[Rfam]
Nucleotides: 095
Base pairs, nucleotide, nucleotide: 023083024082025081026080027079028078029077030076035074036073039070040069041068042067043066048065049064050063051062052061
Number, partner (000 for none) and nucleotide at each position: 001000c002000c003000a004000c005000u006000u007000u008000u009000g010000g011000c012000a013000a014000c015000a016000a017000c018000g019000a020000u021000c022000a023083c024082a025081u026080g027079c028078a029077u030076c031000a032000a033000c034000a035074c036073a037000u038000c039070c040069g041068g042067u043066a044000g045000g046000g047000u048065g049064c050063u051062u052061g053000a054000a055000u056000u057000a058000a059000a060000u061052c062051a063050g064049g065048u066043u067042a068041c069040c070039g071000u072000u073036u074035g075000g076030g077029a078028u079027g080026c081025g082024u083023g084000g085000u086000a087000g088000u089000u090000a091000u092000c093000a094000a095000c